[Rfam]
Annotation: A member of the RNA family "mir-276 microRNA precursor family" from Diachasma alloeum, 87 nucleotides long. The family has 42 seed sequences and 200 matches in Rfam 15.1. The match comes from Rfam's covariance-model search (79 bits).
RNA sequence: GUGAUGGUUAUUCAGCAGCGAGGUAUAGAGUUCCUACGUUGAUUUUGAAUAGUAGGAACUUCAUACCGUGCUCUUGGACUGGCCUCA
Numbered sequence: 001g002u003g004a005u006g007g008u009u010a011u012u013c014a015g016c017a018g019c020g021a022g023g024u025a026u027a028g029a030g031u032u033c034c035u036a037c038g039u040u041g042a043u044u045u046u047g048a049a050u051a052g053u054a055g056g057a058a059c060u061u062c063a064u065a066c067c068g069u070g071c072u073c074u075u076g077g078a079c080u081g082g083c084c085u086c087a
Base pairs, nucleotide, nucleotide: 012077013076014075017072018071019070020069022067023066024065025064026063028061029060030059031058032057033056034055035054036053037052
Dot-bracket structure: ...........(((..((((.(((((.((((((((((..............)))))))))).))))).))))..)))..........